RNA sequence: GGAUGUUCUGAACACCUGCUUGCUAGGCCAUGCAUGGAGGACGACAGUUCCUCAUGGGCCUCAUGCCCGCCUAGGGGAAAGUCCCUGGAAAGCUGGCAGAGAAUGCCGGGCACUACCGCGGCCUCACCCUCCACCGCCUCACGCCUUCCUCUGCUGAGAUGUCCACGGACCGAGUGGGUGCGCGCGGGGUGGGUUCUCGUCACAGCCACAGACACGCAGGUAGUGCAGCAGAUGUGCCAACAGAACGGGGCUCACUCUCAGGCCAUC
Dot-bracket structure: .((((.(((((..((((((...((((((........(((((.......)))))...............)))))).....[[.[[[[........((((.....))))((.(.(....).).)).(.(...((.((((..(.(........((((......(((....)))...))))..).).)))))).).)......................)))))).(((((.....))))).........]]]]]].....))))).))))
Numbered sequence: 001g002g003a004u005g006u007u008c009u010g011a012a013c014a015c016c017u018g019c020u021u022g023c024u025a026g027g028c029c030a031u032g033c034a035u036g037g038a039g040g041a042c043g044a045c046a047g048u049u050c051c052u053c054a055u056g057g058g059c060c061u062c063a064u065g066c067c068c069g070c071c072u073a074g075g076g077g078a079a080a081g082u083c084c085c086u087g088g089a090a091a092g093c094u095g096g097c098a099g100a101g102a103a104u105g106c107c108g109g110g111c112a113c114u115a116c117c118g119c120g121g122c123c124u125c126a127c128c129c130u131c132c133a134c135c136g137c138c139u140c141a142c143g144c145c146u147u148c149c150u151c152u153g154c155u156g157a158g159a160u161g162u163c164c165a166c167g168g169a170c171c172g173a174g175u176g177g178g179u180g181c182g183c184g185c186g187g188g189g190u191g192g193g194u195u196c197u198c199g200u201c202a203c204a205g206c207c208a209c210a211g212a213c214a215c216g217c218a219g220g221u222a223g224u225g226c227a228g229c230a231g232a233u234g235u236g237c238c239a240a241c242a243g244a245a246c247g248g249g250g251c252u253c254a255c256u257c258u259c260a261g262g263c264c265a266u267c
Stems, first nucleotide, its partner, number of pairs: 002267004007262005014221006023074006037053005080252002083250004095107004108123002111120001113118001125193001127191001131189002134187004140182001142180001151177004161170003223237005